[Rfam]
RNA: Bacterial RNase P class A
RNA sequence: CCAGUCGGCUGGGCGACCGCUGCCGUCAUAUGUCGAAAGACGACGGGGGAGGAAAGUCCGGGCUCCACGGAGAAACGGUGCCGGGUAACGCCCGGCGGGGGCGACCCCAGGGAAAGUGCCACAGAAAAUAAACCGCCCCGCCUGCGGCUCGGUCCGCCGUCCUGGUUCGUCCAUGGGCGGGCAUGGGACCGAGGCGCUGGCGGGGUAAGGGUGAAACGGUGGGGUAAGAGCCCACCGCACCGCUGGCAACAGCGGUGGCAGGGCAAACCCCACCGGGAGCAAGACCGAAUAGGGACGACGCGGCGGGUAACCGCCAGCCUUUCUCCGGGCCGGUCGUCCGGGUGGGUUGCUCGAGGCGGCGCGCAAGCGCCGUCCCAGAGGAAUGGUCGCCCGGCAGUUCGCUGCCGACAGAACCCGGCUUACAGGCCGACUGGCAUC
Numbered sequence: 001c002c003a004g005u006c007g008g009c010u011g012g013g014c015g016a017c018c019g020c021u022g023c024c025g026u027c028a029u030a031u032g033u034c035g036a037a038a039g040a041c042g043a044c045g046g047g048g049g050a051g052g053a054a055a056g057u058c059c060g061g062g063c064u065c066c067a068c069g070g071a072g073a074a075a076c077g078g079u080g081c082c083g084g085g086u087a088a089c090g091c092c093c094g095g096c097g098g099g100g101g102c103g104a105c106c107c108c109a110g111g112g113a114a115a116g117u118g119c120c121a122c123a124g125a126a127a128a129u130a131a132a133c134c135g136c137c138c139c140g141c142c143u144g145c146g147g148c149u150c151g152g153u154c155c156g157c158c159g160u161c162c163u164g165g166u167u168c169g170u171c172c173a174u175g176g177g178c179g180g181g182c183a184u185g186g187g188a189c190c191g192a193g194g195c196g197c198u199g200g201c202g203g204g205g206u207a208a209g210g211g212u213g214a215a216a217c218g219g220u221g222g223g224g225u226a227a228g229a230g231c232c233c234a235c236c237g238c239a240c241c242g243c244u245g246g247c248a249a250c251a252g253c254g255g256u257g258g259c260a261g262g263g264c265a266a267a268c269c270c271c272a273c274c275g276g277g278a279g280c281a282a283g284a285c286c287g288a289a290u291a292g293g294g295a296c297g298a299c300g301c302g303g304c305g306g307g308u309a310a311c312c313g314c315c316a317g318c319c320u321u322u323c324u325c326c327g328g329g330c331c332g333g334u335c336g337u338c339c340g341g342g343u344g345g346g347u348u349g350c351u352c353g354a355g356g357c358g359g360c361g362c363g364c365a366a367g368c369g370c371c372g373u374c375c376c377a378g379a380g381g382a383a384u385g386g387u388c389g390c391c392c393g394g395c396a397g398u399u400c401g402c403u404g405c406c407g408a409c410a411g412a413a414c415c416c417g418g419c420u421u422a423c424a425g426g427c428c429g430a431c432u433g434g435c436a437u438c
Stems, first nucleotide, its partner, number of pairs: 001434010011423001012391007020049002023046005054421003058418005063279004072324001074322001076275005081095005096110001097108004111270002116268002118264003133210002135206008218236006237259001238257008283348004293339006317330004355374008